The record is a 94-nucleotide sequence from Megaselia scalaris, which matches "mir-210 microRNA precursor family" in Rfam. The organism belongs to Megaselia, within Eukaryota. For this family Rfam cites "Kaposi's sarcoma-associated herpesvirus expresses an array of viral microRNAs in latently infected cells" (Cai et al., Proc Natl Acad Sci U S A, 2005).
RNA sequence: GAUAUUCUUAUUGCAGCUGGUGACCACUGCACAAGAUUUAAUGUAGACUUUUGUGCGUGUGACAGCGGCUAUUGUGAGAAAUCUAGUCAUCAAA
Numbered sequence: 001g002a003u004a005u006u007c008u009u010a011u012u013g014c015a016g017c018u019g020g021u022g023a024c025c026a027c028u029g030c031a032c033a034a035g036a037u038u039u040a041a042u043g044u045a046g047a048c049u050u051u052u053g054u055g056c057g058u059g060u061g062a063c064a065g066c067g068g069c070u071a072u073u074g075u076g077a078g079a080a081a082u083c084u085a086g087u088c089a090u091c092a093a094a
Stems, first nucleotide, its partner, number of pairs: 005080007015070005021064002024061001025059002028057006035050002